[Rfam]
RNA sequence: UGGUAUUGUCGGCGUAAAAGAACAAGACGUCACCGGACGCGACCGGGCUAAAAAGCGAA
Dot-bracket structure: [[.[.((((.].]].......)))).......(((........))).............
The record is a 59-nucleotide RNA, which matches "GP20-b RNA" in Rfam.
The sequence is in the family's curated seed alignment.
The family's consensus secondary structure is taken from published work.